[Rfam]
glmS glucosamine-6-phosphate activated ribozyme aptamer: a 173-nucleotide sequence from Aneurinibacillus soli. It scores 102 bits against the family's covariance model. Gene Ontology terms of the family: catalytic activity and regulation of gene expression. The base pairs follow the family's consensus structure, which is taken from published work. The literature on the family includes a 2006 paper in Nat Struct Mol Biol by Jansen et al., "Backbone and nucleobase contacts to glucosamine-6-phosphate in the glmS ribozyme".
RNA sequence: AUGAAUAAGAAAGCGCCAGGACCGCUUCACGGACGGGGAAAAGAGAAGCGGUUGACGAGGUGGAGGUUUAUCGAAUGAUUCGGCGGAUGCCUCCCGGUGAACGACCGACGCCGCAGGGCUGUCUGACAAAACGCUCAGGAGACUGAACGGACAAACGGACAGUAUGGUCGACC
Numbered sequence: 001a002u003g004a005a006u007a008a009g010a011a012a013g014c015g016c017c018a019g020g021a022c023c024g025c026u027u028c029a030c031g032g033a034c035g036g037g038g039a040a041a042a043g044a045g046a047a048g049c050g051g052u053u054g055a056c057g058a059g060g061u062g063g064a065g066g067u068u069u070a071u072c073g074a075a076u077g078a079u080u081c082g083g084c085g086g087a088u089g090c091c092u093c094c095c096g097g098u099g100a101a102c103g104a105c106c107g108a109c110g111c112c113g114c115a116g117g118g119c120u121g122u123c124u125g126a127c128a129a130a131a132c133g134c135u136c137a138g139g140a141g142a143c144u145g146a147a148c149g150g151a152c153a154a155a156c157g158g159a160c161a162g163u164a165u166g167g168u169c170g171a172c173c
Base pairs, nucleotide, nucleotide: 020053021052022051023050024049025048026047027046062094063093064092065091066090071083072082073081074080095113096112097111098110099109118163119162120161121160122159123158124157132149133148135146136145137144138143